[Rfam]
RNA sequence: CUCGAGCUUGGUAACUCUAGCUUGUAACCUUAGUGGGGGCUCUAAGAUGUUGGAACAUGUCUCGGGCUUCGCUUGGUUGGGCUUGUAGGUGCACAUAGCAGGCCUGCCCGCUCCAAGUUAAGAGUUGGGCCAUGGGACUCGAGUGAAGGCUUUGGGUCUCCUGGUUCCUAAACUGGAGGGCAAAGCGUGAGGCUGGAUUCACAGAGCAGCGAAUACUUCCGUCUCCUAACGGUGGAGGGAAAAUGGGCCGCUGCACUUUCAGCCCAGGAUGACCGGGUGGGCCAAGCUCCUGAACCAACAUUUUU
Number, nucleotide and partner (000 for none) at each position: 001c000002u039003c038004g023005a022006g021007c020008u019009u000010g017011g016012u000013a000014a000015c000016u011017c010018u000019a008020g007021c006022u005023u004024g000025u000026a000027a000028c037029c036030u035031u000032a000033g000034u000035g030036g029037g028038g003039g002040c000041u000042c000043u000044a304045a303046g302047a301048u300049g299050u298051u297052g296053g295054a000055a000056c292057a291058u000059g289060u000061c000062u286063c000064g000065g283066g282067c281068u000069u280070c279071g278072c277073u276074u275075g274076g273077u272078u271079g265080g264081g263082c262083u261084u000085g259086u000087a257088g000089g256090u255091g254092c000093a000094c000095a000096u000097a000098g000099c000100a000101g249102g248103c247104c246105u245106g244107c000108c239109c238110g000111c237112u236113c235114c234115a233116a000117g230118u229119u228120a227121a000122g225123a224124g223125u000126u000127g167128g166129g165130c164131c163132a162133u000134g160135g159136g158137a157138c156139u155140c154141g153142a151143g150144u149145g000146a000147a000148g000149g144150c143151u142152u000153u141154g140155g139156g138157u137158c136159u135160c134161c000162u132163g131164g130165u129166u128167c127168c000169u000170a000171a000172a000173c000174u221175g220176g219177a218178g217179g216180g000181c000182a000183a000184a000185g000186c211187g210188u209189g000190a000191g000192g000193c204194u203195g202196g000197a000198u000199u000200c000201a000202c195203a194204g193205a000206g000207c000208a000209g188210c187211g186212a000213a000214u000215a000216c179217u178218u177219c176220c175221g174222u000223c124224u123225c122226c000227u120228a119229a118230c117231g000232g000233u115234g114235g113236a112237g111238g109239g108240a000241a000242a000243a000244u106245g105246g104247g103248c102249c101250g000251c000252u000253g000254c091255a090256c089257u087258u000259u085260c000261a083262g082263c081264c080265c079266a000267g000268g000269a000270u000271g078272a077273c076274c075275g074276g073277g072278u071279g070280g069281g067282c066283c065284a000285a000286g062287c000288u000289c059290c000291u057292g056293a000294a000295c053296c052297a051298a050299c049300a048301u047302u046303u045304u044305u000